[Rfam]
Description
SAM/SAH riboswitch aptamer: a 48-nucleotide sequence from Yoonia ponticola. A search with the family's covariance model found it, with a score of 63 bits.

RNA sequence: AGCCUGCCACAACGGCUUCCUGACGUGGCAGAGAUAUUCAUUGGAGCA
Numbered sequence: 001a002g003c004c005u006g007c008c009a010c011a012a013c014g015g016c017u018u019c020c021u022g023a024c025g026u027g028g029c030a031g032a033g034a035u036a037u038u039c040a041u042u043g044g045a046g047c048a
Stems, first nucleotide, its partner, number of pairs: 004031007013022002015047003019044002

The literature on the family includes a 2019 paper in Nucleic Acids Res by Weickhmann et al., "The structure of the SAM/SAH-binding riboswitch".